[Rfam]
RNA: mir-2774 microRNA precursor family
Organism: Bombyx mori
RNA sequence: ACAAUAUUUGGACCGUCGGUCUACAGAGGAAUAUCACCCGCUCGGUGGAAGAUCUUUCCUUUGUCGU
Numbered sequence: 001a002c003a004a005u006a007u008u009u010g011g012a013c014c015g016u017c018g019g020u021c022u023a024c025a026g027a028g029g030a031a032u033a034u035c036a037c038c039c040g041c042u043c044g045g046u047g048g049a050a051g052a053u054c055u056u057u058c059c060u061u062u063g064u065c066g067u
Stems, first nucleotide, its partner, number of pairs: 004064003010058003015053003020049005026043003